[Rfam]
RNA sequence: AAAGUCGGUCGGACAGUCGCUGCCGUCUUCUUGCAAGAAAAGUUGUCUGCAAGUCACGGGGGAGGAAAGUCCGGGCUCCACAGGGCAAAGUGCCAGGUAACGCCUGGGAGGCGCGAGCCUACGGAAAGUGCCACAGAAAACAACCGCCUAAGUCUUGCACGCAAGGCCGGUAAGGGUGAAAAGGUGCGGUAAGAGCGCACCGCGCGGCUGGUAACAGUCCGCGGCAAGGCAAACCCCACUCGGAGCAAGACCAAAUAGGGUUCCUAAGCGCGGCCCGCGUUGGAACCGGGUAGGUUGCUUGAGGCGAUUUGUGAAAAUCGUCCCAGAUGAAUGACUGUCCACGACAGAACCCGGCUUACAGACCGACUUUCCUC
Numbered sequence: 001a002a003a004g005u006c007g008g009u010c011g012g013a014c015a016g017u018c019g020c021u022g023c024c025g026u027c028u029u030c031u032u033g034c035a036a037g038a039a040a041a042g043u044u045g046u047c048u049g050c051a052a053g054u055c056a057c058g059g060g061g062g063a064g065g066a067a068a069g070u071c072c073g074g075g076c077u078c079c080a081c082a083g084g085g086c087a088a089a090g091u092g093c094c095a096g097g098u099a100a101c102g103c104c105u106g107g108g109a110g111g112c113g114c115g116a117g118c119c120u121a122c123g124g125a126a127a128g129u130g131c132c133a134c135a136g137a138a139a140a141c142a143a144c145c146g147c148c149u150a151a152g153u154c155u156u157g158c159a160c161g162c163a164a165g166g167c168c169g170g171u172a173a174g175g176g177u178g179a180a181a182a183g184g185u186g187c188g189g190u191a192a193g194a195g196c197g198c199a200c201c202g203c204g205c206g207g208c209u210g211g212u213a214a215c216a217g218u219c220c221g222c223g224g225c226a227a228g229g230c231a232a233a234c235c236c237c238a239c240u241c242g243g244a245g246c247a248a249g250a251c252c253a254a255a256u257a258g259g260g261u262u263c264c265u266a267a268g269c270g271c272g273g274c275c276c277g278c279g280u281u282g283g284a285a286c287c288g289g290g291u292a293g294g295u296u297g298c299u300u301g302a303g304g305c306g307a308u309u310u311g312u313g314a315a316a317a318u319c320g321u322c323c324c325a326g327a328u329g330a331a332u333g334a335c336u337g338u339c340c341a342c343g344a345c346a347g348a349a350c351c352c353g354g355c356u357u358a359c360a361g362a363c364c365g366a367c368u369u370u371c372c373u374c
Base pairs, nucleotide, nucleotide: 001370002369003368004367005366006365007364008363009362010361011359012339013338014337015336016335017334018333020062021061023059024058025057026056067357068356069355071354072353073352074351075350076245077244078243079242083276084275085274086273089240090239091238092237093107094106095105096104097103108122109120110119111118112117123236124235128234129233130230131229132228144175145174146171147170148169152167153166154165155164156163157162183201184200185199186198187197188196202225203223204222205221206220207219208217209216210215249296250295251294252293259287260286261285262284263283264282267281268280269279270278271277303322304321305320306319307318308317309316310315

Bacterial RNase P class A: a 374-nucleotide RNA from Ventosimonas gracilis. The family's consensus secondary structure is taken from published work. NCBI's taxonomy places the organism under Bacteria, Pseudomonadati, Pseudomonadales, Ventosimonadaceae, Ventosimonas.